[Rfam]
Small nucleolar RNA SNORD101: a 73-nucleotide RNA sequence from Formicarius rufipectus. Its family is annotated with nucleolus and RNA processing in the Gene Ontology. The base pairs follow the family's consensus structure, which was predicted with PFOLD. On this family, see Vitali et al., Nucleic Acids Res 2003: "Identification of 13 novel human modification guide RNAs". Taxonomically the source falls in Formicarius (Eukaryota, Chordata, Sauropsida, Coelurosauria). The family is grouped with related families in Rfam's "SNORD101 clan".

RNA sequence: GUUUGGGUGAUGACUUCACACUUUGUCGGAUACCCCUUCACUCCGUAUGAGUGAUAACUGCUGUCUGACAAAC
Numbered sequence: 001g002u003u004u005g006g007g008u009g010a011u012g013a014c015u016u017c018a019c020a021c022u023u024u025g026u027c028g029g030a031u032a033c034c035c036c037u038u039c040a041c042u043c044c045g046u047a048u049g050a051g052u053g054a055u056a057a058c059u060g061c062u063g064u065c066u067g068a069c070a071a072a073c
Stems, first nucleotide, its partner, number of pairs: 001073005